Annotation: This 182-nucleotide sequence from Aegilops tauschii belongs to the Rfam family "Small nucleolar RNA Z112". Rfam links the family to the GO terms RNA processing and nucleolus. Rfam 15.1 lists 427 matches to the family in 103 species. A reference for the family is Liang et al. (2002), "A novel gene organization: intronic snoRNA gene clusters from Oryza sativa", Nucleic Acids Res. It is annotated as a C/D-box small nucleolar RNA.
[Rfam]
RNA sequence: GUCUCGGUGAAGAGCUCUAGACCAGGAAGUGCCGUAUGACACUGUAAACAGCAGCUGCUUCUCCGCCGCUGCAAGUGCCCACCCCUGUAUCGUAACCUCUGUGGUUUGCUCUGGGACGGAAUACCCAUUUGCACUGGCUUGAUUCAGCUUUGUGCGUGAUUUGAAAUGGGUCUCUGAGUGAU
Numbered sequence: 001g002u003c004u005c006g007g008u009g010a011a012g013a014g015c016u017c018u019a020g021a022c023c024a025g026g027a028a029g030u031g032c033c034g035u036a037u038g039a040c041a042c043u044g045u046a047a048a049c050a051g052c053a054g055c056u057g058c059u060u061c062u063c064c065g066c067c068g069c070u071g072c073a074a075g076u077g078c079c080c081a082c083c084c085c086u087g088u089a090u091c092g093u094a095a096c097c098u099c100u101g102u103g104g105u106u107u108g109c110u111c112u113g114g115g116a117c118g119g120a121a122u123a124c125c126c127a128u129u130u131g132c133a134c135u136g137g138c139u140u141g142a143u144u145c146a147g148c149u150u151u152g153u154g155c156g157u158g159a160u161u162u163g164a165a166a167u168g169g170g171u172c173u174c175u176g177a178g179u180g181a182u
Stems, first nucleotide, its partner, number of pairs: 001182003005178001070133008079119002083115002089110001091108002094106004